[Rfam]
RNA sequence: AAACGGCUUAGGAAUGACACGAUCACUCCCGCUGAGCGAGCAGCCAGGAGCCACCGGGAAUGUCGUGUCCGCCCCAAGCUCUUU
Number, nucleotide and partner (000 for none) at each position: 001a000002a000003a000004c000005g000006g079007c078008u000009u076010a000011g074012g073013a000014a000015u000016g069017a068018c067019a066020c065021g064022a063023u062024c000025a000026c000027u059028c058029c057030c056031g055032c000033u053034g052035a000036g051037c050038g000039a000040g000041c000042a000043g000044c000045c000046a000047g000048g000049a000050g037051c036052c034053a033054c000055c031056g030057g029058g028059a027060a000061u000062g023063u022064c021065g020066u019067g018068u017069c016070c000071g000072c000073c012074c011075c000076a009077a000078g007079c006080u000081c000082u000083u000084u000